RNA sequence: GUUGUUGGAUUUUCCCCGUAUUUGCCCUAUAAUGGUUCUUACCGGGCUUGCCCGGUUAUGAUGCUAAACGAGGUGGCGGAAUAAGCGUUGUGGACCCGGGGGCAGUGCCCGGCGGCUCCACCAAAAUACACGGCCUUACUUGUGUAUUCUGGCGGGGCCGAAACAGGAUCGACACGCGUAGUAAAGGCCAUUGAGGUAUCCGGCAUGGUAUCCGCCGUUAUCGGGCUAAAUUGAUAGUUGCCAACGAUAACUAUCCUGUGGCAGCGAACGACAACUUCGGUGGUCUUCGCGCUGUUGCCUAACGGUAACAGACACAAUGUCUAAAAUCCCUUCGG
Numbered sequence: 001g002u003u004g005u006u007g008g009a010u011u012u013u014c015c016c017c018g019u020a021u022u023u024g025c026c027c028u029a030u031a032a033u034g035g036u037u038c039u040u041a042c043c044g045g046g047c048u049u050g051c052c053c054g055g056u057u058a059u060g061a062u063g064c065u066a067a068a069c070g071a072g073g074u075g076g077c078g079g080a081a082u083a084a085g086c087g088u089u090g091u092g093g094a095c096c097c098g099g100g101g102g103c104a105g106u107g108c109c110c111g112g113c114g115g116c117u118c119c120a121c122c123a124a125a126a127u128a129c130a131c132g133g134c135c136u137u138a139c140u141u142g143u144g145u146a147u148u149c150u151g152g153c154g155g156g157g158c159c160g161a162a163a164c165a166g167g168a169u170c171g172a173c174a175c176g177c178g179u180a181g182u183a184a185a186g187g188c189c190a191u192u193g194a195g196g197u198a199u200c201c202g203g204c205a206u207g208g209u210a211u212c213c214g215c216c217g218u219u220a221u222c223g224g225g226c227u228a229a230a231u232u233g234a235u236a237g238u239u240g241c242c243a244a245c246g247a248u249a250a251c252u253a254u255c256c257u258g259u260g261g262c263a264g265c266g267a268a269c270g271a272c273a274a275c276u277u278c279g280g281u282g283g284u285c286u287u288c289g290c291g292c293u294g295u296u297g298c299c300u301a302a303c304g305g306u307a308a309c310a311g312a313c314a315c316a317a318u319g320u321c322u323a324a325a326a327u328c329c330c331u332u333c334g335g
Stems, first nucleotide, its partner, number of pairs: 041056005060200005072192006086178003090175003096112005113160007201217004206228003211224002
Rfam assigns this 335-nucleotide sequence to the family "Alphaproteobacteria transfer-messenger RNA".
The base pairs follow the family's consensus structure, which is taken from published work.